[Rfam]
RNA sequence: AUAUAAUGCUAGGGGGGCUAGUGUUGCUAGCUGAGAGUAAGACAUAUAGUCUUUGACCCUUGAACCUGAUCUAGAUGAUGCUAGCGUAGGGAAGCAAUUUGGACGAUAU
Numbered sequence: 001a002u003a004u005a006a007u008g009c010u011a012g013g014g015g016g017g018c019u020a021g022u023g024u025u026g027c028u029a030g031c032u033g034a035g036a037g038u039a040a041g042a043c044a045u046a047u048a049g050u051c052u053u054u055g056a057c058c059c060u061u062g063a064a065c066c067u068g069a070u071c072u073a074g075a076u077g078a079u080g081c082u083a084g085c086g087u088a089g090g091g092a093a094g095c096a097a098u099u100u101g102g103a104c105g106a107u108a109u
Base pairs, nucleotide, nucleotide: 007096008095009094010093011060012059013058014057016054017031018030019029020028021027039053040052041051042050065090066089067088068087071084072083073082074081
Dot-bracket structure: ......((((((((.((((((.....))))).......((((.......)))))..))))....((((..((((......))))..))))..)))).............